This 67-nucleotide RNA sequence from Aedes aegypti belongs to the Rfam family "mir-2943 microRNA precursor family".
Its family is annotated with RISC complex and miRNA-mediated post-transcriptional gene silencing in the Gene Ontology.
Rfam's curators put it in the seed alignment.
RNA sequence: GAUGUUAAGUAGGCACUUGCAGGCAAAGUUUCAUUCACAAUUUGACUGCUUUUUCCUACCUUACAUU
Numbered sequence: 001g002a003u004g005u006u007a008a009g010u011a012g013g014c015a016c017u018u019g020c021a022g023g024c025a026a027a028g029u030u031u032c033a034u035u036c037a038c039a040a041u042u043u044g045a046c047u048g049c050u051u052u053u054u055c056c057u058a059c060c061u062u063a064c065a066u067u
Stems, first nucleotide, its partner, number of pairs: 001067005007061001009059005019049004024044003